[Rfam]
RNA sequence: UUCUUAUUGGAUGAUGACUAUCACGUGUCAUGUUCUGAUUGAAUAUCAACUUCAUGAAAAAUAAAAUGUAUCAUUCUUUUCGUUGACAAAUUAGAACAUGACGCGUGACAAUCAUUGUCC
Numbered sequence: 001u002u003c004u005u006a007u008u009g010g011a012u013g014a015u016g017a018c019u020a021u022c023a024c025g026u027g028u029c030a031u032g033u034u035c036u037g038a039u040u041g042a043a044u045a046u047c048a049a050c051u052u053c054a055u056g057a058a059a060a061a062u063a064a065a066a067u068g069u070a071u072c073a074u075u076c077u078u079u080u081c082g083u084u085g086a087c088a089a090a091u092u093a094g095a096a097c098a099u100g101a102c103g104c105g106u107g108a109c110a111a112u113c114a115u116u117g118u119c120c
Stems, first nucleotide, its partner, number of pairs: 021108003025104002029100003033096004038091003
RNA: MIR1520 microRNA precursor family